Rfam assigns this 340-nucleotide sequence from Anaerococcus prevotii to the family "Bacterial RNase P class A". Taxonomically the source falls in Anaerococcus prevotii (Bacteria, Bacillati, Tissierellia, Anaerococcus). By type it is a ribozyme. It scores 266 bits against the family's covariance model.
RNA sequence: GGAGUAAAUUGGAUAAUCGCGGGGAUUAGUCCACGAGGAAAGUCCGUGCACCACAGAGCGAGGAUGCUUGAUAACGUCAAGUAAGAGUGAUCUUCAGGCUAGUGCAACAGAAAGUAUACCGCCAGUUUUUUUGGUAAGGUUGGAAUGGCGAGGUAAGAGCUCACCAGCUAUCUAGUGAUAGGUAGGCUAUGUAAACCCCAUCCGGUGCAAGAACGAAAGGGACAGUAGGAUGUUUGCUCGACACGGUCCAGUAUGGUUGUUCGCUUGAGCUUGUUGGCGACAAUAAGCCUAGACAGAUGAUUAUCUAAGACAGAACACGGCUUAUAGAUUUGCUCCUUAC
Number, nucleotide and partner (000 for none) at each position: 001g336002g335003a334004g333005u332006a331007a330008a329009u328010u327011g325012g305013a304014u303015a302016a301017u300018c299019g000020c035021g034022g000023g032024g031025a030026u000027u000028a000029g000030u025031c024032c023033a000034c021035g020036a000037g000038g000039a000040a323041a322042g321043u000044c320045c319046g318047u317048g316049c207050a206051c205052c204053a000054c000055a000056g000057a000058g238059c000060g000061a000062g203063g202064a201065u200066g199067c081068u080069u079070g078071a077072u000073a000074a000075c000076g000077u071078c070079a069080a068081g067082u096083a094084a093085g092086a091087g000088u000089g000090a000091u086092c085093u084094u083095c000096a082097g198098g197099c000100u000101a000102g196103u195104g192105c191106a190107a000108c000109a000110g000111a000112a000113a000114g000115u000116a000117u000118a000119c139120c138121g135122c134123c133124a132125g131126u000127u000128u000129u000130u000131u125132u124133g123134g122135u121136a000137a000138g120139g119140u000141u000142g000143g000144a000145a000146u000147g165148g164149c000150g162151a161152g160153g000154u000155a000156a000157g000158a000159g000160c152161u151162c150163a000164c148165c147166a000167g187168c185169u184170a183171u182172c181173u180174a179175g000176u000177g000178a000179u174180a173181g172182g171183u170184a169185g168186g000187c167188u000189a000190u106191g105192u104193a000194a000195a103196c102197c098198c097199c066200a065201u064202c063203c062204g052205g051206u050207g049208c000209a000210a000211g262212a261213a260214c259215g000216a000217a000218a000219g000220g000221g000222a252223c251224a000225g249226u000227a000228g000229g000230a000231u243232g242233u241234u240235u000236g000237c000238u058239c000240g234241a233242c232243a231244c000245g000246g000247u000248c000249c225250a000251g223252u222253a000254u000255g000256g000257u000258u000259g214260u213261u212262c211263g000264c000265u000266u000267g000268a000269g288270c287271u286272u285273g284274u283275u282276g281277g000278c000279g000280a000281c276282a275283a274284u273285a272286a271287g270288c269289c000290u000291a000292g000293a000294c000295a000296g000297a000298u000299g018300a017301u016302u015303a014304u013305c012306u000307a000308a000309g000310a000311c000312a000313g000314a000315a000316c048317a047318c046319g045320g044321c042322u041323u040324a000325u011326a000327g010328a009329u008330u007331u006332g005333c004334u003335c002336c001337u000338u000339a000340c000